RNA sequence: AUACGUAAAGGCGAUGGAGUUCGCCUUCAACAACCGCGCAGGUUAAUGACUCCUAUGGGUGC
Numbered sequence: 001a002u003a004c005g006u007a008a009a010g011g012c013g014a015u016g017g018a019g020u021u022c023g024c025c026u027u028c029a030a031c032a033a034c035c036g037c038g039c040a041g042g043u044u045a046a047u048g049a050c051u052c053c054u055a056u057g058g059g060u061g062c
Stems, first nucleotide, its partner, number of pairs: 010025004016053006033043003
The record is a 62-nucleotide sequence from Paenalicyclobacillus mengziensis, which matches "Fluoride riboswitch aptamer (crcB RNA motif)" in Rfam.
The match comes from Rfam's covariance-model search (48 bits).